[Rfam]
RNA sequence: UUGGCCCCUCUAUGGCAAUGAGGGCAUGGGGUGGGCAGGAUGGCUCCUGUCACCCCGUGGCUCUCGGCCUAGUUGGGGCCC
Number, nucleotide and partner (000 for none) at each position: 001u000002u000003g080004g079005c078006c077007c076008c075009u000010c000011u000012a000013u000014g069015g068016c067017a000018a000019u066020g065021a000022g063023g062024g061025c060026a000027u000028g000029g056030g055031g054032u000033g000034g051035g050036c049037a048038g047039g046040a045041u000042g000043g000044c000045u040046c039047c038048u037049g036050u035051c034052a000053c000054c031055c030056c029057g000058u000059g000060g025061c024062u023063c022064u000065c020066g019067g016068c015069c014070u000071a000072g000073u000074u000075g008076g007077g006078g005079c004080c003081c000
A member of the RNA family "SL588 non-coding RNA" from Orthohepacivirus hominis, 81 nucleotides long. By type it is a cis-regulatory element. Pairs were carried over by alignment from the consensus structure, which was predicted with RNAfold. The organism belongs to Hepatitis C virus genotype 1, within Viruses.